A member of the RNA family "Eukaryotic large subunit ribosomal RNA" from Plenodomus tracheiphilus, 422 nucleotides of a longer RNA.
The family's consensus secondary structure is taken from published work.
RNA sequence: UAACCUUAGAUUAGAUAAGGAUACCUACUAAACUUAAGCAUAUUAAUAAGUAGAGGAAAAGAAACUAAUAGAGAUUUCCCUAGUAAUAGCAAGUAAAGUAGUAAUAGCUUAAAUUUAAAAUCUAGCUCUUUUAGAGUCUAAGUUAUAAUUUAUAGAGGGCGCUUUAGUAUUAGUAGUAGUCUAAGUUCCUUAGAAUAGAAUAUUAUAGAGGGUAAGAACCUUAUAUAUAGUUACUAGCCUUUACUAUAUAAAGCCUCUUUAAUAAGUUAAGUUAUUUAGGAAUAUAGCUCUAAAUAGGAGGUAAAUUUCUUCUAAAGCUAAAUACUGGCCAGAGACCGAUAGUAUAUAAGUAGAGUAAUUAAAAGAUAAAAAGUACUUUAGAAAGAGAGUUAAAUAGCAUAUAAAAUUAUUAAAAGAGAAGC
Numbered sequence: 001u002a003a004c005c006u007u008a009g010a011u012u013a014g015a016u017a018a019g020g021a022u023a024c025c026u027a028c029u030a031a032a033c034u035u036a037a038g039c040a041u042a043u044u045a046a047u048a049a050g051u052a053g054a055g056g057a058a059a060a061g062a063a064a065c066u067a068a069u070a071g072a073g074a075u076u077u078c079c080c081u082a083g084u085a086a087u088a089g090c091a092a093g094u095a096a097a098g099u100a101g102u103a104a105u106a107g108c109u110u111a112a113a114u115u116u117a118a119a120a121u122c123u124a125g126c127u128c129u130u131u132u133a134g135a136g137u138c139u140a141a142g143u144u145a146u147a148a149u150u151u152a153u154a155g156a157g158g159g160c161g162c163u164u165u166a167g168u169a170u171u172a173g174u175a176g177u178a179g180u181c182u183a184a185g186u187u188c189c190u191u192a193g194a195a196u197a198g199a200a201u202a203u204u205a206u207a208g209a210g211g212g213u214a215a216g217a218a219c220c221u222u223a224u225a226u227a228u229a230g231u232u233a234c235u236a237g238c239c240u241u242u243a244c245u246a247u248a249u250a251a252a253g254c255c256u257c258u259u260u261a262a263u264a265a266g267u268u269a270a271g272u273u274a275u276u277u278a279g280g281a282a283u284a285u286a287g288c289u290c291u292a293a294a295u296a297g298g299a300g301g302u303a304a305a306u307u308u309c310u311u312c313u314a315a316a317g318c319u320a321a322a323u324a325c326u327g328g329c330c331a332g333a334g335a336c337c338g339a340u341a342g343u344a345u346a347u348a349a350g351u352a353g354a355g356u357a358a359u360u361a362a363a364a365g366a367u368a369a370a371a372a373g374u375a376c377u378u379u380a381g382a383a384a385g386a387g388a389g390u391u392a393a394a395u396a397g398c399a400u401a402u403a404a405a406a407u408u409a410u411u412a413a414a415a416g417a418g419a420a421g422c
Stems, first nucleotide, its partner, number of pairs: 024055001025053005035042002066071001076103001078101001086094002106319004112150004118144002121141001125137003155260002157257003162253004167244003173238001175235006185201001187200001189198002204208001211221002270289006296313005353360002376387004